[Rfam]
Background:
This 85-nucleotide RNA sequence from Turnera subulata belongs to the Rfam family "Small nucleolar RNA R21". Gene Ontology terms of the family: RNA processing and nucleolus. Pairs were carried over by alignment from the consensus structure, which was predicted with PFOLD. The source organism's lineage runs through Eukaryota, Streptophyta, Tracheophyta, Malpighiales and Turnera. By type it is a C/D-box small nucleolar RNA. The literature on the family includes a 2001 paper in J Mol Biol by Barneche et al., "Identification of 66 box C/D snoRNAs in Arabidopsis thaliana: extensive gene duplications generated multiple isoforms predicting new ribosomal RNA 2'-O-methylation sites".
RNA sequence: UAUCCCGAUGAGGAGUUAUGUUUCAAGUAAUUAAAAGUAGUGGCCUGAUCUCAAUUUUUGAUGAACUAACAAAUUCUGAGGGAUG
Numbered sequence: 001u002a003u004c005c006c007g008a009u010g011a012g013g014a015g016u017u018a019u020g021u022u023u024c025a026a027g028u029a030a031u032u033a034a035a036a037g038u039a040g041u042g043g044c045c046u047g048a049u050c051u052c053a054a055u056u057u058u059u060g061a062u063g064a065a066c067u068a069a070c071a072a073a074u075u076c077u078g079a080g081g082g083a084u085g
Stems, first nucleotide, its partner, number of pairs: 001085006